This 155-nucleotide RNA from Roseomonas acroporae belongs to the Rfam family "6S / SsrS RNA". It is annotated as a non-coding RNA gene. E. coli 6S RNA was the first non coding RNA to be sequenced, but its function was unknown until recently. Pairs were carried over by alignment from the consensus structure, which is taken from published work.

RNA sequence: GCGGAGCUGCCAGGUGCGUCAGGCAUCGUAUCCCCAGGGCCAAUAAGCGUCCUCCGGGAGCUGGCGCUGCCCGGAUCGUGGUCCGGGUAUCCGGCGCCCACCUGCGUUAGCAGGCCUUGGGAGGAUAGAACGCCAACGGCCAUGGCGGCUCCGCA
Numbered sequence: 001g002c003g004g005a006g007c008u009g010c011c012a013g014g015u016g017c018g019u020c021a022g023g024c025a026u027c028g029u030a031u032c033c034c035c036a037g038g039g040c041c042a043a044u045a046a047g048c049g050u051c052c053u054c055c056g057g058g059a060g061c062u063g064g065c066g067c068u069g070c071c072c073g074g075a076u077c078g079u080g081g082u083c084c085g086g087g088u089a090u091c092c093g094g095c096g097c098c099c100a101c102c103u104g105c106g107u108u109a110g111c112a113g114g115c116c117u118u119g120g121g122a123g124g125a126u127a128g129a130a131c132g133c134c135a136a137c138g139g140c141c142a143u144g145g146c147g148g149c150u151c152c153g154c155a
Stems, first nucleotide, its partner, number of pairs: 002153010013141003017138003031122004036117003040114002056099003060095005069088006